[Rfam]
RNA sequence: CUGUGCUAGACGGGGAGGUAGCGGUGCCUUGUACCUGCAAUCCGCUAUAGCAGGGUGGAAUUCCCAUUGCAGGCUUUUCUUUUGUAAGGUCUGUUCCUCGCAAGUGGCAAUGAAAACCGGGUCUUACGCAACGGAGACCUGUGAACCCCGUCAGGUCCGGAAGGAAGCAGCGGUAAGCAGUACUCUUCGUGUGCCGUAAGUUUGCCUGGUUAGAGUUAACUACGAGGGUAACGCUUAUAAAAAUCAGUCGAAGAUGGGUGCACAG
Dot-bracket structure: ((((((...((((((.(.(...).).))))...(((((...........)))))))......((((((...((((....(((((((((...((..(((((...(((((......((((((((((((((((.(((((..((((.....((((....(((....)))....))))...))))....)))))))...))))))...))))))))...))).))..))))).))...)))))))))...))))...)))))).))))))
Numbered sequence: 001c002u003g004u005g006c007u008a009g010a011c012g013g014g015g016a017g018g019u020a021g022c023g024g025u026g027c028c029u030u031g032u033a034c035c036u037g038c039a040a041u042c043c044g045c046u047a048u049a050g051c052a053g054g055g056u057g058g059a060a061u062u063c064c065c066a067u068u069g070c071a072g073g074c075u076u077u078u079c080u081u082u083u084g085u086a087a088g089g090u091c092u093g094u095u096c097c098u099c100g101c102a103a104g105u106g107g108c109a110a111u112g113a114a115a116a117c118c119g120g121g122u123c124u125u126a127c128g129c130a131a132c133g134g135a136g137a138c139c140u141g142u143g144a145a146c147c148c149c150g151u152c153a154g155g156u157c158c159g160g161a162a163g164g165a166a167g168c169a170g171c172g173g174u175a176a177g178c179a180g181u182a183c184u185c186u187u188c189g190u191g192u193g194c195c196g197u198a199a200g201u202u203u204g205c206c207u208g209g210u211u212a213g214a215g216u217u218a219a220c221u222a223c224g225a226g227g228g229u230a231a232c233g234c235u236u237a238u239a240a241a242a243a244u245c246a247g248u249c250g251a252a253g254a255u256g257g258g259u260g261c262a263c264a265g
Stems, first nucleotide, its partner, number of pairs: 001265006010056002012030004017025001019023001034054005063258006072249004080242009092230002096227005104220002106217003115211008123200006129191002132189005139180004148173004156165003